This 207-nucleotide sequence from Pseudoalteromonas citrea belongs to the Rfam family "Lysine riboswitch aptamer". Gene Ontology term of the family: lysine biosynthetic process. The family's consensus secondary structure is taken from published work. The match comes from Rfam's covariance-model search (104 bits).
RNA sequence: AGGGCUGGAAGAGGUGCGUUAUUCAGGUAAUUGUAUUGAGGAGAGCAAACUCCGAUGACAUGCAGUGAGGGGAAUUAACGCCGAGAAACAAUGACUAUUUGCUCAGUCAUUGUUUCGGGCGACUGGGUUGAAUCCCAGCGACUGUCACCAAUUGUAUUGCUAAUAAAAUAAGCAUACACAUUAGUUUGGUGGAGAGCUUCUGGUCUU
Number, nucleotide and partner (000 for none) at each position: 001a000002g000003g000004g000005c000006u202007g201008g200009a199010a198011g197012a000013g000014g000015u000016g081017c080018g079019u078020u077021a076022u000023u074024c000025a000026g000027g000028u000029a000030a066031u065032u064033g063034u062035a061036u060037u000038g000039a000040g000041g000042a000043g000044a000045g000046c000047a000048a000049a000050c000051u000052c000053c000054g000055a000056u000057g000058a000059c000060a036061u035062g034063c033064a032065g031066u030067g000068a000069g000070g000071g000072g000073a000074a023075u000076u021077a020078a019079c018080g017081c016082c000083g000084a000085g116086a115087a114088a113089c112090a111091a110092u109093g108094a107095c106096u105097a000098u000099u000100u000101g000102c000103u000104c000105a096106g095107u094108c093109a092110u091111u090112g089113u088114u087115u086116c085117g143118g142119g000120c140121g000122a000123c138124u137125g136126g135127g134128u000129u000130g000131a000132a000133u000134c127135c126136c125137a124138g123139c000140g120141a000142c118143u117144g000145u192146c191147a190148c189149c188150a187151a186152u000153u000154g000155u000156a000157u000158u000159g000160c000161u000162a000163a000164u000165a000166a000167a000168a000169u000170a000171a000172g000173c000174a000175u000176a000177c000178a000179c000180a000181u000182u000183a000184g000185u000186u151187u150188g149189g148190u147191g146192g145193a000194g000195a000196g000197c011198u010199u009200c008201u007202g006203g000204u000205c000206u000207u000